[Rfam]
RNA sequence: GGCCUAAACUCGUAGCUUGCUCCGAGCAUGGUUAUAAACCCAAUCAAGGUAAAAACCCCGUCGUCAGGGUUCCUUGAUUGGUCGUGCACCGAAAGGUGUGCGUUCGACCCGAAAGGGUUGA
Numbered sequence: 001g002g003c004c005u006a007a008a009c010u011c012g013u014a015g016c017u018u019g020c021u022c023c024g025a026g027c028a029u030g031g032u033u034a035u036a037a038a039c040c041c042a043a044u045c046a047a048g049g050u051a052a053a054a055a056c057c058c059c060g061u062c063g064u065c066a067g068g069g070u071u072c073c074u075u076g077a078u079u080g081g082u083c084g085u086g087c088a089c090c091g092a093a094a095g096g097u098g099u100g101c102g103u104u105c106g107a108c109c110c111g112a113a114a115g116g117g118u119u120g121a
Stems, first nucleotide, its partner, number of pairs: 001033004009026004014021002040081010054071005083102008104121006

This 121-nucleotide sequence belongs to the Rfam family "LOOT RNA". The sequence is in the family's curated seed alignment. The family's RNA type in Rfam is small RNA.